About this RNA:
Small nucleolar RNA SNORA53: a 232-nucleotide sequence from Electrophorus electricus.
RNA sequence: UGCACGUUCCUUAGAUCCACCUCUGGGGAGUCCUCCAGUUCUGGUACUGCACUCACUCGCUCUGGGUGCUGCAGCUCCAGGCUGGAGGCUCCCAGCAGCUUUUCUGGCUGUACAGUUAGAGGUGCUUGAGUCAUUGGCAUGUGAGAGCAGUCUACCUGCUCCUCCAGCCCCACAUCUGCCCUGGCUCCCUCGCUGGACUGCACCAGGGCAGAAGAGCUGGAGGGCGGACACA
Numbered sequence: 001u002g003c004a005c006g007u008u009c010c011u012u013a014g015a016u017c018c019a020c021c022u023c024u025g026g027g028g029a030g031u032c033c034u035c036c037a038g039u040u041c042u043g044g045u046a047c048u049g050c051a052c053u054c055a056c057u058c059g060c061u062c063u064g065g066g067u068g069c070u071g072c073a074g075c076u077c078c079a080g081g082c083u084g085g086a087g088g089c090u091c092c093c094a095g096c097a098g099c100u101u102u103u104c105u106g107g108c109u110g111u112a113c114a115g116u117u118a119g120a121g122g123u124g125c126u127u128g129a130g131u132c133a134u135u136g137g138c139a140u141g142u143g144a145g146a147g148c149a150g151u152c153u154a155c156c157u158g159c160u161c162c163u164c165c166a167g168c169c170c171c172a173c174a175u176c177u178g179c180c181c182u183g184g185c186u187c188c189c190u191c192g193c194u195g196g197a198c199u200g201c202a203c204c205a206g207g208g209c210a211g212a213a214g215a216g217c218u219g220g221a222g223g224g225c226g227g228a229c230a231c232a
Stems, first nucleotide, its partner, number of pairs: 002142003006138003010130005018124008026093005034086004040081005047074004053068001055067004095111006156227005164220001166218003175212007183204002
Rfam classes the family as an H/ACA-box small nucleolar RNA.